[Rfam]
RNA sequence: UAUAUUGUUGUCUGGUAUGUAGUAGGUAAUAACUGACAAACAGACAAUUGCCUAACAUGUGCCAGAAAACAACAUA
Numbered sequence: 001u002a003u004a005u006u007g008u009u010g011u012c013u014g015g016u017a018u019g020u021a022g023u024a025g026g027u028a029a030u031a032a033c034u035g036a037c038a039a040a041c042a043g044a045c046a047a048u049u050g051c052c053u054a055a056c057a058u059g060u061g062c063c064a065g066a067a068a069a070c071a072a073c074a075u076a
Stems, first nucleotide, its partner, number of pairs: 005072005011066010023054008033043003